[Rfam]
RNA sequence: CGUGAAAAAGGGCAAACUAUCCGAGAGGGUAGGACGCAAAGCCAAGAGACCGAUGAGUAGGGGAUCCACUUCCCACGGUUCGUCUGGUUGCCAUG
Numbered sequence: 001c002g003u004g005a006a007a008a009a010g011g012g013c014a015a016a017c018u019a020u021c022c023g024a025g026a027g028g029g030u031a032g033g034a035c036g037c038a039a040a041g042c043c044a045a046g047a048g049a050c051c052g053a054u055g056a057g058u059a060g061g062g063g064a065u066c067c068a069c070u071u072c073c074c075a076c077g078g079u080u081c082g083u084c085u086g087g088u089u090g091c092c093a094u095g
Stems, first nucleotide, its partner, number of pairs: 012037002017032006040089004045085003048080003055074001
A member of the RNA family "c-di-GMP-I riboswitch aptamer" from Candidatus Manganitrophus noduliformans, 95 nucleotides long. It scores 57 bits against the family's covariance model. GEMM was predicted in a large-scale screen for bacterial structured RNA regulatory elements. Lineage of the source: Bacteria > Pseudomonadati > Nitrospirota > Candidatus Troglogloeales > Candidatus Manganitrophus. Its family is annotated with cyclic-di-GMP binding in the Gene Ontology.